[Rfam]
RNA sequence: GAAGCCUGCCCAGGUAGCCGCUAGCCACGGGCCUGGAAUCGAGACUUGCAGUCGGACCGGCAACGGGCCGAUUGAUGCGUAGUCACGAAAGGGGGCGAGGUGCAAGGGUAACAGGUGAUGCUGACCUUGAAGGUGUAGAGCUCCGAAAAGACCGACGUUGGGAUCGGCCGAUGGUUUAAAUGGGCCAGCAGGCAACAGCGCUGCACGCGUCACGGCGAGUGUGCAGCGACCCCCCGGAGCCUCAGGCCG
Numbered sequence: 001g002a003a004g005c006c007u008g009c010c011c012a013g014g015u016a017g018c019c020g021c022u023a024g025c026c027a028c029g030g031g032c033c034u035g036g037a038a039u040c041g042a043g044a045c046u047u048g049c050a051g052u053c054g055g056a057c058c059g060g061c062a063a064c065g066g067g068c069c070g071a072u073u074g075a076u077g078c079g080u081a082g083u084c085a086c087g088a089a090a091g092g093g094g095g096c097g098a099g100g101u102g103c104a105a106g107g108g109u110a111a112c113a114g115g116u117g118a119u120g121c122u123g124a125c126c127u128u129g130a131a132g133g134u135g136u137a138g139a140g141c142u143c144c145g146a147a148a149a150g151a152c153c154g155a156c157g158u159u160g161g162g163a164u165c166g167g168c169c170g171a172u173g174g175u176u177u178a179a180a181u182g183g184g185c186c187a188g189c190a191g192g193c194a195a196c197a198g199c200g201c202u203g204c205a206c207g208c209g210u211c212a213c214g215g216c217g218a219g220u221g222u223g224c225a226g227c228g229a230c231c232c233c234c235c236g237g238a239g240c241c242u243c244a245g246g247c248c249g
Stems, first nucleotide, its partner, number of pairs: 010036005018030003022218001024216002039088002043084004047079002049074007057066003138241001140240006160234003166230001167193003172187004199228010

Record summary:
Shown here is a 249-nucleotide RNA from Thiocapsa marina, a member of the family "Group II catalytic intron D1-D4-6".